[Rfam]
RNA: Small nucleolar RNA U54
Organism: Microthlaspi erraticum
RNA sequence: GGCUCGGUGAUUACUUGCCUUCUUGGCAGUAUACGCUAUUCUGAAUACAGAGUAUGAAAGAGAACUAAAUUUACUCAAUGAGAGCC
Numbered sequence: 001g002g003c004u005c006g007g008u009g010a011u012u013a014c015u016u017g018c019c020u021u022c023u024u025g026g027c028a029g030u031a032u033a034c035g036c037u038a039u040u041c042u043g044a045a046u047a048c049a050g051a052g053u054a055u056g057a058a059a060g061a062g063a064a065c066u067a068a069a070u071u072u073a074c075u076c077a078a079u080g081a082g083a084g085c086c
Stems, first nucleotide, its partner, number of pairs: 001086005